[Rfam]
RNA: Potassium channel RNA editing signal
RNA sequence: GUGGGAUAUGGCGAUAUGGCGCCCAAAACUUACGCGGGCAUGUUUGUGGGGGCCCUAUGUGCUCUCGCAGGGGUCCUCACCAUCGCUCUACCUGUGCCCGUUAUCGUAUCUAAU
Numbered sequence: 001g002u003g004g005g006a007u008a009u010g011g012c013g014a015u016a017u018g019g020c021g022c023c024c025a026a027a028a029c030u031u032a033c034g035c036g037g038g039c040a041u042g043u044u045u046g047u048g049g050g051g052g053c054c055c056u057a058u059g060u061g062c063u064c065u066c067g068c069a070g071g072g073g074u075c076c077u078c079a080c081c082a083u084c085g086c087u088c089u090a091c092c093u094g095u096g097c098c099c100g101u102u103a104u105c106g107u108a109u110c111u112a113a114u
Base pairs, nucleotide, nucleotide: 001114002113004111005110007108008107009106010105011104013102014101015100018097021095022094037077038076040074049063050062